Record summary:
The family of this 65-nucleotide RNA from Hymenobacter swuensis is "DUF3800-VIII RNA". NCBI's taxonomy places the organism under Bacteria, Bacteroidota, Cytophagales, Hymenobacteraceae, Hymenobacter swuensis. Rfam classes the family as a small RNA. From the family's description: Bacteroidetes, Cyanobacteria, Firmicutes, Planctomycetes (1 example), Proteobacteria, Tenericutes (1 example).
[Rfam]
RNA sequence: AAGCCUCUGUAUCCACUGAAGCCUUGCGUAACACGCGGGAGUAGUCGUAGGUGGUGCGGGGGCUU
Dot-bracket structure: (((((((((((((.(((.....(((((((...)))))))..........))))))))))))))))